[Rfam]
RNA sequence: AACUCGACCGGGUCGACGCCGCGCGUGACGACGAGGUAGUCGCGGAUCGCGAUGCCGUGCCGGCCCUC
Numbered sequence: 001a002a003c004u005c006g007a008c009c010g011g012g013u014c015g016a017c018g019c020c021g022c023g024c025g026u027g028a029c030g031a032c033g034a035g036g037u038a039g040u041c042g043c044g045g046a047u048c049g050c051g052a053u054g055c056c057g058u059g060c061c062g063g064c065c066c067u068c
Base pairs, nucleotide, nucleotide: 004063005062006061008059012029013028016026017025018024035056036055037054038053040052041051042050043049044048
ASdes TB sRNA: a 68-nucleotide sequence from Blastococcus sp. CT_GayMR20. The base pairs follow the family's consensus structure, which is taken from published work. It is annotated as a small RNA. Rfam 15.1 lists 1,192 matches to the family in 825 species. A reference for the family is Arnvig and Young (2009), "Identification of small RNAs in Mycobacterium tuberculosis", Mol Microbiol.